Rfam assigns this 147-nucleotide RNA sequence from Bacillus yapensis to the family "Ribosomal protein L10 leader". By type it is a cis-regulatory leader. Lineage of the source: Bacteria > Bacillati > Bacilli > Caryophanales > Bacillus. About the family: This family is a putative r-protein leader autoregulatory structure found in B. subtilis and other low-GC Gram-positive bacteria. Pairs were carried over by alignment from the consensus structure, which was predicted with CMfinder. Rfam links the family to the GO term regulation of gene expression.

RNA sequence: AAAUAAAUAACAUUUGUACCGCAGACAGCAGGAGCUGCAAAGCUUAAUUUUCCUGCCGAGGUCAUACGAUAGAAUGAUUUAGUUGUAUUUUGACUAUUGUAUACUUCCUCCAUGUCUGUAAAGAUGUGGAGGUUUUUAUAUGCAUCG
Numbered sequence: 001a002a003a004u005a006a007a008u009a010a011c012a013u014u015u016g017u018a019c020c021g022c023a024g025a026c027a028g029c030a031g032g033a034g035c036u037g038c039a040a041a042g043c044u045u046a047a048u049u050u051u052c053c054u055g056c057c058g059a060g061g062u063c064a065u066a067c068g069a070u071a072g073a074a075u076g077a078u079u080u081a082g083u084u085g086u087a088u089u090u091u092g093a094c095u096a097u098u099g100u101a102u103a104c105u106u107c108c109u110c111c112a113u114g115u116c117u118g119u120a121a122a123g124a125u126g127u128g129g130a131g132g133u134u135u136u137u138a139u140a141u142g143c144a145u146c147g
Stems, first nucleotide, its partner, number of pairs: 028056006034043003107132010